A member of the RNA family "Small nucleolar RNA SNORA63" from Fukomys damarensis, 133 nucleotides long. The family's consensus secondary structure was predicted with PFOLD. It is annotated as an H/ACA-box small nucleolar RNA. A search with the family's covariance model found it, with a score of 124 bits. On this family, see Mishra and Eliceiri, Proc Natl Acad Sci U S A 1997: "Three small nucleolar RNAs that are involved in ribosomal RNA precursor processing".
RNA sequence: UAGCAGGCUUAAGAGUGCAACAUAGCUGUUGAGUGCUGUGCUGUCGUUCUCCCUGCUCAAAAAAAAAGUUGUUUCUUAACUAUACCUGUCUGCUAUGCCUAUGUAGCAGCCAGGGACGCUUAGUCUCAUACAC
Numbered sequence: 001u002a003g004c005a006g007g008c009u010u011a012a013g014a015g016u017g018c019a020a021c022a023u024a025g026c027u028g029u030u031g032a033g034u035g036c037u038g039u040g041c042u043g044u045c046g047u048u049c050u051c052c053c054u055g056c057u058c059a060a061a062a063a064a065a066a067a068g069u070u071g072u073u074u075c076u077u078a079a080c081u082a083u084a085c086c087u088g089u090c091u092g093c094u095a096u097g098c099c100u101a102u103g104u105a106g107c108a109g110c111c112a113g114g115g116a117c118g119c120u121u122a123g124u125c126u127c128a129u130a131c132a133c
Base pairs, nucleotide, nucleotide: 003056004055005054006053007052017044018043019042021040022039023038024037025036026035085114086113087112088111090109091108092107093106